DUF3800-IX RNA: a 66-nucleotide RNA.
[Rfam]
RNA sequence: AGGCCACGUCCGAACUGUCCCCUUCAUGGGGUGCGUGCUCCGCAAGAGCUAGGACGUGGUCUUUAU
Numbered sequence: 001a002g003g004c005c006a007c008g009u010c011c012g013a014a015c016u017g018u019c020c021c022c023u024u025c026a027u028g029g030g031g032u033g034c035g036u037g038c039u040c041c042g043c044a045a046g047a048g049c050u051a052g053g054a055c056g057u058g059g060u061c062u063u064u065a066u
Base pairs, nucleotide, nucleotide: 001062002061003060004059005058006057007056008055009054010053011052016035017034018033019031020030021029022028037049038048039047040046
It is annotated as a small RNA. Rfam's curators put it in the seed alignment. Rfam describes the family as follows. Actinobacteria, Firmicutes (1 example), Nitrospirae, Proteobacteria, Verrucomicrobia (1 example).